[Rfam]
RNA sequence: GGUCGGAUAGCCGAGUGGCUAGGCACAGCUCUGCAAAAGCUGCUACAGCGGUUCGAAUCCGCUUUCGACCU
Numbered sequence: 001g002g003u004c005g006g007a008u009a010g011c012c013g014a015g016u017g018g019c020u021a022g023g024c025a026c027a028g029c030u031c032u033g034c035a036a037a038a039g040c041u042g043c044u045a046c047a048g049c050g051g052u053u054c055g056a057a058u059c060c061g062c063u064u065u066c067g068a069c070c071u
Stems, first nucleotide, its partner, number of pairs: 001070007010024003026042005047063005
Overview
Shown here is a 71-nucleotide sequence from Taibaiella sp., a member of the family "tRNA". From the family's description: Transfer RNA (tRNA) molecules are approximately 80 nucleotides in length. Their secondary structure includes four short double-helical elements and three loops (D, anti-codon, and T loops). Further hydrogen bonds mediate the characteristic L-shaped molecular structure. tRNAs have two regions of fundamental functional importance: the anti-codon, which is responsible for specific mRNA codon recognition, and the 3' end, to which the tRNAs corresponding amino acid is attached (by aminoacyl-tRNA synthetases). tRNAs cope with the degeneracy of the genetic code in two manners: having more than one tRNA (with a specific anti-codon) for a particular amino acid; and 'wobble' base-pairing, i.e. permitting non-standard base-pairing at the 3rd anti-codon position. The family's consensus secondary structure is taken from published work.